A member of the RNA family "SAH (S-adenosyl-L-homocysteine) riboswitch aptamer" from Acidithiobacillus sulfuriphilus, 78 nucleotides long. The source organism's lineage runs through Bacteria, Pseudomonadota, Acidithiobacillales, Acidithiobacillaceae and Acidithiobacillus. The base pairs follow the family's consensus structure, which is taken from published work.
[Rfam]
RNA sequence: CGGGUCGAGGAGCGCUGCAGCGGGACAUCCGCCAGGCUCGACCCGCCAUCAUUUGGCUUCAAACCGCGCUCGCUUUCA
Number, nucleotide and partner (000 for none) at each position: 001c000002g044003g043004g042005u041006c040007g039008a038009g000010g000011a000012g000013c000014g000015c000016u000017g000018c000019a000020g000021c031022g030023g029024g000025a000026c000027a000028u000029c023030c022031g021032c000033c000034a000035g000036g000037c000038u008039c007040g006041a005042c004043c003044c002045g000046c000047c000048a000049u000050c000051a000052u000053u000054u000055g000056g000057c000058u000059u000060c000061a000062a000063a000064c000065c000066g000067c000068g000069c000070u000071c000072g000073c000074u000075u000076u000077c000078a000